[Rfam]
RNA: U4 spliceosomal RNA
RNA sequence: AGAAAUGUGCAGUGGCAGUAUCGUAGCCAAUCAGGUUUAUCUGAGGCAUGAUUAUUGCUAAUUGAAAACUGUUCCCAAUAUGCUCCUGUGAUGACUUGCAAUAUAGUUAGCACUGGCAAUUUUUUUUUUUUUUGAGA
Numbered sequence: 001a002g003a004a005a006u007g008u009g010c011a012g013u014g015g016c017a018g019u020a021u022c023g024u025a026g027c028c029a030a031u032c033a034g035g036u037u038u039a040u041c042u043g044a045g046g047c048a049u050g051a052u053u054a055u056u057g058c059u060a061a062u063u064g065a066a067a068a069c070u071g072u073u074c075c076c077a078a079u080a081u082g083c084u085c086c087u088g089u090g091a092u093g094a095c096u097u098g099c100a101a102u103a104u105a106g107u108u109a110g111c112a113c114u115g116g117c118a119a120u121u122u123u124u125u126u127u128u129u130u131u132u133u134g135a136g137a
Stems, first nucleotide, its partner, number of pairs: 020052005026047003034042002085116002088113003092109005